[Rfam]
RNA sequence: UAGGUCGACCAGGCGGUCGCGUCAUGGGAGACCAUGCCGAGGAACGUCCGGGCUCCAUAGAGCAGGACGGUGGGUAACGCCCACCCGGGGAAACCCGCGAGACAGUGCCACAGAAAGCAGACCGCCCCGCCGCCGCUUCCUUCGAGGAGCGGGACGUCCUCCGGGACGCAGGGGUAAGGGUGAAAGGGUGGGGUAAGAGCCCACCGGGUGCCUGGUGACAGGUGCCGCACGGUAAACCUCGUCCGGAGCAAGGCCAUACAGGGGAUGACGACGCUGCUCGCCGAGUCCCCGGGUAGGCCGCUAGAUUCGCGCGGCAACGUGCGAGCGAGAGAGAUGGCCGCCCCCGACGCAAGUCGGGACAGAACCCGGCGUAUCGGUCGGCCUGCUCA
Numbered sequence: 001u002a003g004g005u006c007g008a009c010c011a012g013g014c015g016g017u018c019g020c021g022u023c024a025u026g027g028g029a030g031a032c033c034a035u036g037c038c039g040a041g042g043a044a045c046g047u048c049c050g051g052g053c054u055c056c057a058u059a060g061a062g063c064a065g066g067a068c069g070g071u072g073g074g075u076a077a078c079g080c081c082c083a084c085c086c087g088g089g090g091a092a093a094c095c096c097g098c099g100a101g102a103c104a105g106u107g108c109c110a111c112a113g114a115a116a117g118c119a120g121a122c123c124g125c126c127c128c129g130c131c132g133c134c135g136c137u138u139c140c141u142u143c144g145a146g147g148a149g150c151g152g153g154a155c156g157u158c159c160u161c162c163g164g165g166a167c168g169c170a171g172g173g174g175u176a177a178g179g180g181u182g183a184a185a186g187g188g189u190g191g192g193g194u195a196a197g198a199g200c201c202c203a204c205c206g207g208g209u210g211c212c213u214g215g216u217g218a219c220a221g222g223u224g225c226c227g228c229a230c231g232g233u234a235a236a237c238c239u240c241g242u243c244c245g246g247a248g249c250a251a252g253g254c255c256a257u258a259c260a261g262g263g264g265a266u267g268a269c270g271a272c273g274c275u276g277c278u279c280g281c282c283g284a285g286u287c288c289c290c291g292g293g294u295a296g297g298c299c300g301c302u303a304g305a306u307u308c309g310c311g312c313g314g315c316a317a318c319g320u321g322c323g324a325g326c327g328a329g330a331g332a333g334a335u336g337g338c339c340g341c342c343c344c345c346g347a348c349g350c351a352a353g354u355c356g357g358g359a360c361a362g363a364a365c366c367c368g369g370c371g372u373a374u375c376g377g378u379c380g381g382c383c384u385g386c387u388c389a
Stems, first nucleotide, its partner, number of pairs: 001385010011374001012342007020039002023036005044372003048369005053248004060279004065244005070084005085099001086097004100239002105237002107233003122179002124175005131168002187205006206228001207226008252299004261290006273281002306325008
RNA: Bacterial RNase P class A
Organism: Pseudoclavibacter sp. RFBA6